[Rfam]
This 296-nucleotide sequence from Neurospora crassa belongs to the Rfam family "A. fumigatus sRNA Afu_309". The literature on the family includes a 2008 paper in Nucleic Acids Res by Jochl et al., "Small ncRNA transcriptome analysis from Aspergillus fumigatus suggests a novel mechanism for regulation of protein synthesis". The organism belongs to Neurospora, within Eukaryota.

Nucleotides: 296
Stems, first nucleotide, its partner, number of pairs: 003147001004145007011076003014072003018068004022062005027056001029054003033050002037046003084138001086135001091126002094123001096121003155217002161213001162211005176200001177196005182189002222289001224287001225283005238272002241269001244267003249259004
Number, partner (000 for none) and nucleotide at each position: 001000a002000c003147g004145g005144a006143c007142c008141u009140g010139u011076g012075c013074c014072c015071a016070g017000c018068g019067c020066u021065c022062c023061u024060c025059u026058g027056c028000c029054g030053c031052c032000a033050g034049c035000u036000c037046g038045u039044g040000c041000u042000u043000g044039c045038a046037c047000u048000u049034g050033u051000a052031g053030g054029c055000a056027g057000c058026u059025a060024g061023g062022g063000u064000u065021g066020a067019g068018u069000g070016c071015u072014g073000a074013g075012g076011c077000a078000g079000u080000u081000c082000g083000g084138c085000a086135a087000c088000c089000a090000a091126g092125g093000a094123g095000c096121c097120a098119u099000c100000c101000a102000g103000g104000a105000c106000u107000u108000u109000a110000c111000g112000u113000u114000c115000u116000u117000c118000c119098a120097u121096g122000a123094u124000g125092u126091c127000a128000a129000u130000u131000u132000c133000c134000a135086u136000c137000c138084g139010a140009c141008a142007g143006g144005u145004c146000a147003c148000c149000a150000g151000a152000a153000g154000a155217a156216c157000c158000g159000a160000a161213c162211u163210c164209c165208g166207g167000u168000g169000u170000g171000a172000a173000c174000c175000u176200c177196g178195u179194u180193c181192g182189c183188c184000g185000c186000a187000a188183g189182g190000c191000u192181u193180g194179a195178g196177c197000u198000u199000g200176g201000g202000g203000a204000g205000c206000g207166c208165c209164g210163g211162a212000u213161g214000a215000u216156g217155u218000a219000g220000g221000g222289g223000a224287a225283g226282u227281c228280a229279u230000a231000u232000u233000c234000c235000a236000a237000u238272c239271c240000g241269u242000u243000c244267g245266c246265c247000g248000a249259g250258g251257a252256c253000g254000u255000c256252g257251u258250c259249c260000u261000a262000u263000g264000a265246g266245g267244c268000u269241g270000g271239g272238g273000g274000a275000a276000a277000c278000c279229a280228u281227g282226a283225c284000a285000a286000u287224u288000g289222c290000c291000a292000c293000a294000u295000u296000u